[Rfam]
RNA sequence: CUGUGUCUUGGAAUGACAUUAAACUUACCCUGGUGCGGAUGGGAUAUCUCUCCCGCCUGGUUUCUUGUUUCCAGUCAAAGAACAAGUGGUGGAUCCAAUU
Numbered sequence: 001c002u003g004u005g006u007c008u009u010g011g012a013a014u015g016a017c018a019u020u021a022a023a024c025u026u027a028c029c030c031u032g033g034u035g036c037g038g039a040u041g042g043g044a045u046a047u048c049u050c051u052c053c054c055g056c057c058u059g060g061u062u063u064c065u066u067g068u069u070u071c072c073a074g075u076c077a078a079a080g081a082a083c084a085a086g087u088g089g090u091g092g093a094u095c096c097a098a099u100u
Stems, first nucleotide, its partner, number of pairs: 010029002012026002015024001040055005057074004064086006
RNA: wcaG RNA